[Rfam]
RNA: Small Cajal body-specific RNA 7
RNA sequence: UGGAAGUGAUGAAAUAGAGAUAAUUGGAUGUCUCUCCAAAUGGAGUGUGUGUGAUAAAUGAAUGUAAACCAAGUCAGAUUGGGGGUGGGCUGUGGGGAAUAUGUGUGUGUGUGUGCGUGCAUGCGCAUGUAUAGAAAAGGCUUUGAACGGGGGCACUGAUAAUGCAGUGCUGAUUCCGGAGUGCAUCUGAGGCAUGUUGUUAAGUUCUGGGGUGCCACUUUACAACAUUGCCAAUGAUUAAAGCCCAAAACAAGCCCACCAAGACAAGCCUAGGCAUCCUAAAUCUCUGACAGGUUCACUAAUGAAAGUGAUCCUGUGAUCUGAUCCAU
Numbered sequence: 001u002g003g004a005a006g007u008g009a010u011g012a013a014a015u016a017g018a019g020a021u022a023a024u025u026g027g028a029u030g031u032c033u034c035u036c037c038a039a040a041u042g043g044a045g046u047g048u049g050u051g052u053g054a055u056a057a058a059u060g061a062a063u064g065u066a067a068a069c070c071a072a073g074u075c076a077g078a079u080u081g082g083g084g085g086u087g088g089g090c091u092g093u094g095g096g097g098a099a100u101a102u103g104u105g106u107g108u109g110u111g112u113g114u115g116c117g118u119g120c121a122u123g124c125g126c127a128u129g130u131a132u133a134g135a136a137a138a139g140g141c142u143u144u145g146a147a148c149g150g151g152g153g154c155a156c157u158g159a160u161a162a163u164g165c166a167g168u169g170c171u172g173a174u175u176c177c178g179g180a181g182u183g184c185a186u187c188u189g190a191g192g193c194a195u196g197u198u199g200u201u202a203a204g205u206u207c208u209g210g211g212g213u214g215c216c217a218c219u220u221u222a223c224a225a226c227a228u229u230g231c232c233a234a235u236g237a238u239u240a241a242a243g244c245c246c247a248a249a250a251c252a253a254g255c256c257c258a259c260c261a262a263g264a265c266a267a268g269c270c271u272a273g274g275c276a277u278c279c280u281a282a283a284u285c286u287c288u289g290a291c292a293g294g295u296u297c298a299c300u301a302a303u304g305a306a307a308g309u310g311a312u313c314c315u316g317u318g319a320u321c322u323g324a325u326c327c328a329u
Stems, first nucleotide, its partner, number of pairs: 001328004195227006202220001204215002207212001